[Rfam]
Small nucleolar RNA SNORD16: a 102-nucleotide RNA from Vombatus ursinus. Gene Ontology terms of the family: RNA processing and nucleolus. A search with the family's covariance model found it, with a score of 87 bits. The family's RNA type in Rfam is C/D-box small nucleolar RNA. For this family Rfam cites "RNomics: an experimental approach that identifies 201 candidates for novel, small, non-messenger RNAs in mouse" (Huttenhofer et al., EMBO J, 2001). Its Rfam clan is "SNORD16 clan".
Nucleotides: 102
Stems, first nucleotide, its partner, number of pairs: 001102003021084004031073004040065002042058005
Number, partner (000 for none) and nucleotide at each position: 001102u002101g003100c004000u005000a006000u007000g008000a009000u010000g011000u012000c013000g014000u015000a016000a017000u018000u019000u020000g021084c022083g023082u024081c025000u026000u027000a028000c029000u030000u031073a032072a033071g034070c035000a036000u037000u038000c039000a040065g041064u042058g043057a044056c045055a046054g047000u048000u049000g050000c051000c052000u053000g054046c055045u056044g057043u058042c059000a060000g061000u062000a063000a064041g065040c066000u067000g068000a069000c070034g071033c072032u073031u074000u075000c076000u077000g078000g079000g080000u081024g082023a083022u084021g085000a086000g087000u088000a089000c090000u091000u092000g093000u094000a095000a096000c097000u098000g099000a100003g101002c102001a